[Rfam]
RNA sequence: AGCUCAGUGAUUGAAGCCAAUUUUAUGUUGGAAAUAUACGCUAUGCUGACCACAGUUUGAUGUAAAGUCAAAGUAUGAGAGCU
Numbered sequence: 001a002g003c004u005c006a007g008u009g010a011u012u013g014a015a016g017c018c019a020a021u022u023u024u025a026u027g028u029u030g031g032a033a034a035u036a037u038a039c040g041c042u043a044u045g046c047u048g049a050c051c052a053c054a055g056u057u058u059g060a061u062g063u064a065a066a067g068u069c070a071a072a073g074u075a076u077g078a079g080a081g082c083u
Stems, first nucleotide, its partner, number of pairs: 001083005

The record is an 83-nucleotide RNA sequence from Eragrostis curvula, which matches "Small nucleolar RNA U54" in Rfam. Its Rfam clan is "U54 clan". It scores 78 bits against the family's covariance model. By type it is a C/D-box small nucleolar RNA. Rfam links the family to the GO terms nucleolus and RNA processing. The family has 21 seed sequences and 614 matches in Rfam 15.1. For this family Rfam cites "The high diversity of snoRNAs in plants: identification and comparative study of 120 snoRNA genes from Oryza sativa" (Chen et al., Nucleic Acids Res, 2003).